[Rfam]
RNA: Guanidine-I riboswitch aptamer
RNA sequence: GCGGGGCGCCCCUAGGGUUCCGCUCCAUCCGUGGAGGACUGGUCCGAGAGGGGAAGCGGUCGGCACAGCGCGGUGCGGACCGUUCCACGGCGGGACAAAAGCCCGGGAGGC
Numbered sequence: 001g002c003g004g005g006g007c008g009c010c011c012c013u014a015g016g017g018u019u020c021c022g023c024u025c026c027a028u029c030c031g032u033g034g035a036g037g038a039c040u041g042g043u044c045c046g047a048g049a050g051g052g053g054a055a056g057c058g059g060u061c062g063g064c065a066c067a068g069c070g071c072g073g074u075g076c077g078g079a080c081c082g083u084u085c086c087a088c089g090g091c092g093g094g095a096c097a098a099a100a101g102c103c104c105g106g107g108a109g110g111c
Stems, first nucleotide, its partner, number of pairs: 009053004015045002020042002022039001023036005056084001059081001063076004086106001088109001092104003